[Rfam]
small nucleolar RNA snoR114: a 91-nucleotide RNA from Jatropha curcas. Pairs were carried over by alignment from the consensus structure, which was predicted with RNAalifold. Rfam links the family to the GO terms RNA processing and nucleolus. The match comes from Rfam's covariance-model search (51 bits).
RNA sequence: GGGCUAUGAUGAAGUUAGUGCUCUAUGCGGUAGAGGGGUCUAUCGCAGUCGUCAGAUCUUCAACAGCUGAAUUCAUAGCACAUCUCAGCUC
Numbered sequence: 001g002g003g004c005u006a007u008g009a010u011g012a013a014g015u016u017a018g019u020g021c022u023c024u025a026u027g028c029g030g031u032a033g034a035g036g037g038g039u040c041u042a043u044c045g046c047a048g049u050c051g052u053c054a055g056a057u058c059u060u061c062a063a064c065a066g067c068u069g070a071a072u073u074c075a076u077a078g079c080a081c082a083u084c085u086c087a088g089c090u091c
Stems, first nucleotide, its partner, number of pairs: 001091004